The family of this 74-nucleotide RNA sequence from Baryphthengus martii is "Small nucleolar RNA SNORD59". The literature on the family includes a 2002 paper in Mol Cell Biol by Galardi et al., "Purified box C/D snoRNPs are able to reproduce site-specific 2'-O-methylation of target RNA in vitro". Gene Ontology terms of the family: nucleolus and RNA processing. The source organism's lineage runs through Eukaryota, Craniata, Amniota, Aves and Baryphthengus.
RNA sequence: CCUUCGGUGAUGAGCAGCAGUUUGACUUUCGUUCUUCUGAGCUGGGCUGAAGCCACAUUUGCGAUCUGAGGAGG
Numbered sequence: 001c002c003u004u005c006g007g008u009g010a011u012g013a014g015c016a017g018c019a020g021u022u023u024g025a026c027u028u029u030c031g032u033u034c035u036u037c038u039g040a041g042c043u044g045g046g047c048u049g050a051a052g053c054c055a056c057a058u059u060u061g062c063g064a065u066c067u068g069a070g071g072a073g074g
Stems, first nucleotide, its partner, number of pairs: 001074003005070001